[Rfam]
RNA: Metazoan signal recognition particle RNA
Organism: Naegleria fowleri
RNA sequence: CUGGGUUCGGUUUGGGGUCGAACUGUCAUGGUACUCUGCCACAGCGAUAAGCAAGGGAAUGGCUCUUUGGACUCAUUCCAUCACUAACAAUAAGGUGACGAUGUUCUGUCCGUACCAACAGCGGUGUGGCCAAUCUGGCUCUACAGGAAUGGAGAGCCAGUUGGGUCCUAAUUAGUGGGGAACCGGUUGAGGCAGGAUGACUGAGCAAAUCAUACUCGCAGCACUGUAGGAUGGACGGAUGGCAGAACUGAGCAUGAGUACGUGGUGGGUGAAAUCCAAGGGCUGGACUUGAGUUUUU
Numbered sequence: 001c002u003g004g005g006u007u008c009g010g011u012u013u014g015g016g017g018u019c020g021a022a023c024u025g026u027c028a029u030g031g032u033a034c035u036c037u038g039c040c041a042c043a044g045c046g047a048u049a050a051g052c053a054a055g056g057g058a059a060u061g062g063c064u065c066u067u068u069g070g071a072c073u074c075a076u077u078c079c080a081u082c083a084c085u086a087a088c089a090a091u092a093a094g095g096u097g098a099c100g101a102u103g104u105u106c107u108g109u110c111c112g113u114a115c116c117a118a119c120a121g122c123g124g125u126g127u128g129g130c131c132a133a134u135c136u137g138g139c140u141c142u143a144c145a146g147g148a149a150u151g152g153a154g155a156g157c158c159a160g161u162u163g164g165g166u167c168c169u170a171a172u173u174a175g176u177g178g179g180g181a182a183c184c185g186g187u188u189g190a191g192g193c194a195g196g197a198u199g200a201c202u203g204a205g206c207a208a209a210u211c212a213u214a215c216u217c218g219c220a221g222c223a224c225u226g227u228a229g230g231a232u233g234g235a236c237g238g239a240u241g242g243c244a245g246a247a248c249u250g251a252g253c254a255u256g257a258g259u260a261c262g263u264g265g266u267g268g269g270u271g272a273a274a275u276c277c278a279a280g281g282g283c284u285g286g287a288c289u290u291g292a293g294u295u296u297u298u
Base pairs, nucleotide, nucleotide: 001044002043003042004024005023006022007021008020009019010018011017029041030040031039049295050294054290055289056288060285061284062283063282064281065280067279068278069277070276075275076274077273079271080270081269082268087266088265090263093255095253096252103248104247105246106245107244108243109242110238111237115234116233117232119229121227122226123225124224125223126222127221128167129166130165131164133162135160136159137158138157139156140155141154142153144151145150175219176218177217178216179215185211186210187209188208193203194202195201